[Rfam]
Notes:
Shown here is a 155-nucleotide RNA sequence, a member of the family "cold-seep-1 RNA". It is one of the family's seed sequences. Pairs were carried over by alignment from the consensus structure, which is taken from published work.
RNA sequence: GGUCCCCAUUAAGGCAGUGUCUCGAAAAGACUAGGCCAAGGUGGGGGAAGGCUCAUCUCAGGGUGUGGCCACGCCUUCUACUUAUGGUGCCGGGCGUCGGUCUGUCAGAGUGCGUCACAUUGCGGUGCCACUCGCGGCCGAAGGUCUGGGGACGA
Number, nucleotide and partner (000 for none) at each position: 001g000002g153003u152004c151005c150006c149007c148008a147009u000010u000011a000012a000013g000014g036015c035016a000017g000018u033019g031020u030021c029022u000023c000024g000025a000026a000027a000028a000029g021030a020031c019032u000033a018034g000035g015036c014037c000038a000039a000040g000041g000042u000043g000044g000045g000046g000047g000048a000049a000050g070051g069052c068053u000054c065055a064056u063057c062058u000059c000060a000061g000062g057063g056064u055065g054066u000067g000068g052069c051070c050071a000072c000073g000074c000075c000076u000077u000078c000079u000080a000081c000082u000083u000084a000085u000086g000087g000088u000089g000090c000091c000092g000093g000094g000095c000096g000097u141098c140099g139100g138101u137102c136103u000104g000105u000106c000107a000108g133109a132110g131111u130112g000113c000114g000115u000116c127117a126118c125119a000120u000121u000122g000123c000124g000125g118126u117127g116128c000129c000130a111131c110132u109133c108134g000135c000136g102137g101138c100139c099140g098141a097142a000143g000144g000145u000146c000147u008148g007149g006150g005151g004152a003153c002154g000155a000